RNA sequence: UCACAGUAGCAGCGAGAGUCGGGUGUGAACCCCGACGACCAAACGAGCAAGGGUUCCUCGGCACUGCCACUCAGCCGAGGGUUAGCCGAUCCUAAGUCCCACCGUAACUCGACUGGGACAACAGGGAAACUGGUUAAUAUUCCAGUGCCGUCGUGUAUUUCGUUCGACGCUUUCGGAAACAGCGAUCGAGGCACUCGCCUCGACGAAUCAUGGACGAUCGUGGACGCCGUAAUGGCACGAAGCGUUCAAAGCAUGACACAGAGCAAUUCGCUGGUACCAAGAGCCCGUGAAAAGACACACGCCGAUCGUACCAAGAACCAACACAGGUGCUCAGGCAGCAAAAGCCACGGUCUGU
Numbered sequence: 001u002c003a004c005a006g007u008a009g010c011a012g013c014g015a016g017a018g019u020c021g022g023g024u025g026u027g028a029a030c031c032c033c034g035a036c037g038a039c040c041a042a043a044c045g046a047g048c049a050a051g052g053g054u055u056c057c058u059c060g061g062c063a064c065u066g067c068c069a070c071u072c073a074g075c076c077g078a079g080g081g082u083u084a085g086c087c088g089a090u091c092c093u094a095a096g097u098c099c100c101a102c103c104g105u106a107a108c109u110c111g112a113c114u115g116g117g118a119c120a121a122c123a124g125g126g127a128a129a130c131u132g133g134u135u136a137a138u139a140u141u142c143c144a145g146u147g148c149c150g151u152c153g154u155g156u157a158u159u160u161c162g163u164u165c166g167a168c169g170c171u172u173u174c175g176g177a178a179a180c181a182g183c184g185a186u187c188g189a190g191g192c193a194c195u196c197g198c199c200u201c202g203a204c205g206a207a208u209c210a211u212g213g214a215c216g217a218u219c220g221u222g223g224a225c226g227c228c229g230u231a232a233u234g235g236c237a238c239g240a241a242g243c244g245u246u247c248a249a250a251g252c253a254u255g256a257c258a259c260a261g262a263g264c265a266a267u268u269c270g271c272u273g274g275u276a277c278c279a280a281g282a283g284c285c286c287g288u289g290a291a292a293a294g295a296c297a298c299a300c301g302c303c304g305a306u307c308g309u310a311c312c313a314a315g316a317a318c319c320a321a322c323a324c325a326g327g328u329g330c331u332c333a334g335g336c337a338g339c340a341a342a343a344g345c346c347a348c349g350g351u352c353u354g355u
Stems, first nucleotide, its partner, number of pairs: 018036006037352004045332004051312002056080006065073002087308003091125002096119006103111002129146005149304002152301005164295002169284005175278002180273005186203005208256004217246001219244003226236003318327002334346003
Dot-bracket structure: .................((((((.......))))))((((....((((..((...((((((...((.....)).))))))......(((.((...((((((.((.....))..))))))....))...(((((........)))))..((.(((((.......((...(((((.((...(((((.(((((........)))))....((((.....(.(((....(((.....))).....))).)......))))............)))))...)).))))).........)).))))).)).)))..)).....((......)).)))).(((.......)))..))))...
A member of the RNA family "Archaeal large subunit ribosomal RNA" from Haloquadratum sp. J07HQX50, 355 nucleotides of a longer RNA. NCBI's taxonomy places the organism under Archaea, Methanobacteriota, Halobacteria, Halobacteriales, Haloquadratum.